This 168-nucleotide RNA from Desulforamulus profundi belongs to the Rfam family "Group II catalytic intron D1-D4-3". Taxonomically the source falls in Desulforamulus (Bacteria, Bacillati, Eubacteriales, Peptococcaceae). About the family: Group II introns are found in rRNA, tRNA and mRNA of organelles in fungi, plants and protists, and also in mRNA in bacteria.

[Rfam]
RNA sequence: UCACUGGUAACGGUGGGGUCUGAAGGAAGCUGAAGGGGGAACUUGGAACAUAGCGAAAGCGAACCGAUGUUGGCCUAUCGAGUGGGUAACCUUGCAGUAUAUGGGAAAGCCCAAAAGCUGGAUAACUCGAAAGGUUAGGACGGAUGCGUUCAAGUUCAGGCAAGCAAA
Numbered sequence: 001u002c003a004c005u006g007g008u009a010a011c012g013g014u015g016g017g018g019u020c021u022g023a024a025g026g027a028a029g030c031u032g033a034a035g036g037g038g039g040a041a042c043u044u045g046g047a048a049c050a051u052a053g054c055g056a057a058a059g060c061g062a063a064c065c066g067a068u069g070u071u072g073g074c075c076u077a078u079c080g081a082g083u084g085g086g087u088a089a090c091c092u093u094g095c096a097g098u099a100u101a102u103g104g105g106a107a108a109g110c111c112c113a114a115a116a117g118c119u120g121g122a123u124a125a126c127u128c129g130a131a132a133g134g135u136u137a138g139g140a141c142g143g144a145u146g147c148g149u150u151c152a153a154g155u156u157c158a159g160g161c162a163a164g165c166a167a168a
Stems, first nucleotide, its partner, number of pairs: 001016006031166002036161001041155006049146003064143003068139001073135003078130006084112004090105003